[Rfam]
RNA sequence: AGACCAAUCUUCUGCUAAGCUGAAGAUAAGCCCUUACGGACAGGCGGGUCGGUUGCCGG
Numbered sequence: 001a002g003a004c005c006a007a008u009c010u011u012c013u014g015c016u017a018a019g020c021u022g023a024a025g026a027u028a029a030g031c032c033c034u035u036a037c038g039g040a041c042a043g044g045c046g047g048g049u050c051g052g053u054u055g056c057c058g059g
Stems, first nucleotide, its partner, number of pairs: 002050004008026004
This 59-nucleotide RNA sequence belongs to the Rfam family "Streptococcus sRNA SpF59 (ldcC RNA)". Pairs were carried over by alignment from the consensus structure, which was predicted with mfold. The literature on the family includes a 2012 paper in PLoS Pathog by Mann et al., "Control of virulence by small RNAs in Streptococcus pneumoniae". By type it is a small RNA.